[Rfam]
RNA: Group II catalytic intron D1-D4-1
RNA sequence: CUACCGCCGCUGAGAAGCGACGGAAUAGGGCGGCAGAAGUCAGCAGAUGCCGUAGUAGCCGUACCGGACGGCGAAGGGC
Numbered sequence: 001c002u003a004c005c006g007c008c009g010c011u012g013a014g015a016a017g018c019g020a021c022g023g024a025a026u027a028g029g030g031c032g033g034c035a036g037a038a039g040u041c042a043g044c045a046g047a048u049g050c051c052g053u054a055g056u057a058g059c060c061g062u063a064c065c066g067g068a069c070g071g072c073g074a075a076g077g078g079c
Stems, first nucleotide, its partner, number of pairs: 002025001004023003008019004039048003049079003058072005